This 155-nucleotide sequence from Brevibacillus centrosporus belongs to the Rfam family "FMN riboswitch aptamer (RFN element)". The base pairs follow the family's consensus structure, which is taken from published work. Rfam's curators write: The RFN element is a highly conserved domain that is found frequently in the 5'-untranslated regions of prokaryotic mRNAs that encode for flavin mononucleotide (FMN) biosynthesis and transport proteins. The match comes from Rfam's covariance-model search (113 bits).
RNA sequence: ACAUUCCUUCGGGGCAGGGUGAAAUUCCCGACCGGCGGUGAUCAUGCAAAAUUGCAUGUAAGCCCGCGAGCCUCCCGAGCUGAUACACAGCAGGGAGUGCAGGAUCUGGUGCGAUUCCAGAGCCGACAGUACAGUCUGGAUGGGAGAAGGAUGAC
Numbered sequence: 001a002c003a004u005u006c007c008u009u010c011g012g013g014g015c016a017g018g019g020u021g022a023a024a025u026u027c028c029c030g031a032c033c034g035g036c037g038g039u040g041a042u043c044a045u046g047c048a049a050a051a052u053u054g055c056a057u058g059u060a061a062g063c064c065c066g067c068g069a070g071c072c073u074c075c076c077g078a079g080c081u082g083a084u085a086c087a088c089a090g091c092a093g094g095g096a097g098u099g100c101a102g103g104a105u106c107u108g109g110u111g112c113g114a115u116u117c118c119a120g121a122g123c124c125g126a127c128a129g130u131a132c133a134g135u136c137u138g139g140a141u142g143g144g145a146g147a148a149g150g151a152u153g154a155c
Base pairs, nucleotide, nucleotide: 005151006150007149008148009147010146017029018028019027031135032134033125034124035067036066037065038064062123063122072099105121106120107119108118109117127138128137129136